[Rfam]
The family of this 68-nucleotide RNA sequence from Sporolactobacillus inulinus is "Bacillaceae-1 RNA". The family's consensus secondary structure is taken from published work. By type it is a small RNA.
RNA sequence: AGCAAAUGAACUUUCGCUAAGUACGCAUACGUCCUGUAUGCAACGCGAAAGUCACCGCAUCCUGCGGA
Numbered sequence: 001a002g003c004a005a006a007u008g009a010a011c012u013u014u015c016g017c018u019a020a021g022u023a024c025g026c027a028u029a030c031g032u033c034c035u036g037u038a039u040g041c042a043a044c045g046c047g048a049a050a051g052u053c054a055c056c057g058c059a060u061c062c063u064g065c066g067g068a
Base pairs, nucleotide, nucleotide: 011051012050013049014048015047016046017045026040027039028038029037030036055067056066057065058064